Nucleotides: 210
Stems, first nucleotide, its partner, number of pairs: 001133005014121003025111002029108003035051005052093007134149004
Number, partner (000 for none) and nucleotide at each position: 001133g002132g003131c004130g005129a006000u007000a008000a009000a010000c011000g012000c013000a014121c015120c016119u017000g018000c019000a020000a021000u022000a023000g024000a025111c026110g027000g028000c029108u030107c031106g032000g033000a034000c035051c036050c037049g038048g039047g040000g041000g042000c043000g044000g045000u046000a047039c048038c049037c050036g051035g052093c053092g054091g055090c056089u057088c058087c059000a060000c061000c062000a063000a064000a065000c066000c067000c068000c069000g070000c071000g072000g073000c074000g075000u076000u077000g078000c079000g080000c081000g082000g083000u084000c085000a086000u087058g088057g089056g090055g091054c092053c093052g094000a095000a096000a097000c098000a099000g100000g101000a102000u103000c104000g105000a106031c107030g108029g109000a110026c111025g112000u113000u114000c115000a116000a117000a118000g119016a120015g121014g122000c123000c124000a125000g126000c127000u128000u129005u130004c131003g132002c133001u134149c135148g136147g137146u138000g139000a140000g141000c142000u143000a144000c145000c146137a147136c148135c149134g150000u151000u152000a153000u154000c155000g156000g157000u158000g159000c160000a161000a162000a163000a164000g165000u166000a167000c168000a169000g170000u171000u172000g173000c174000c175000a176000a177000c178000g179000a180000c181000a182000a183000c184000c185000g186000u187000g188000c189000u190000c191000c192000g193000g194000u195000g196000g197000c198000u199000c200000u201000g202000g203000c204000u205000g206000c207000g208000u209000a210000a
Shown here is a 210-nucleotide RNA from Neotabrizicola shimadae, a member of the family "permuted transfer-messenger RNA". A search with the family's covariance model found it, with a score of 148 bits. Pairs were carried over by alignment from the consensus structure, which is taken from published work. Bacterial tmRNA, also known as 10Sa RNA or SsrA, is named for its dual tRNA and mRNA-like properties.